[Rfam]
RNA: Potassium channel RNA editing signal
Nucleotides: 114
Base pairs, nucleotide, nucleotide: 002113004111008107009106010105011104014101015100016099018097019096020095021094037077038076040074050062
Number, partner (000 for none) and nucleotide at each position: 001000c002113u003000g004111g005000g006000c007000u008107a009106u010105g011104g012000a013000g014101a015100u016099a017000u018097g019096u020095a021094c022000c023000c024000c025000a026000a027000g028000a029000c030000c031000u032000g033000g034000u035000u036000g037077g038076g039000a040074a041000u042000g043000a044000u045000g046000g047000u048000g049000g050062g051000g052000g053000c054000u055000u056000u057000g058000u059000g060000u061000g062050c063000a064000c065000u066000u067000g068000c069000u070000g071000g072000u073000g074040u075000g076038c077037u078000a079000a080000c081000c082000a083000u084000u085000g086000c087000c088000a089000u090000g091000c092000c093000u094021g095020u096019a097018c098000c099016u100015g101014u102000a103000a104011u105010u106009g107008u108000c109000a110000a111004c112000a113002a114000c